[Rfam]
RNA sequence: GAAGGCAAAUGAUGGAAAAUUCUUAUCCUACACACUGAACUAGAUGUAGACUACAUCUCCGCUUAUUAUCUGAUGCCUUC
Numbered sequence: 001g002a003a004g005g006c007a008a009a010u011g012a013u014g015g016a017a018a019a020u021u022c023u024u025a026u027c028c029u030a031c032a033c034a035c036u037g038a039a040c041u042a043g044a045u046g047u048a049g050a051c052u053a054c055a056u057c058u059c060c061g062c063u064u065a066u067u068a069u070c071u072g073a074u075g076c077c078u079u080c
Stems, first nucleotide, its partner, number of pairs: 003078005
RNA: Small nucleolar RNA R16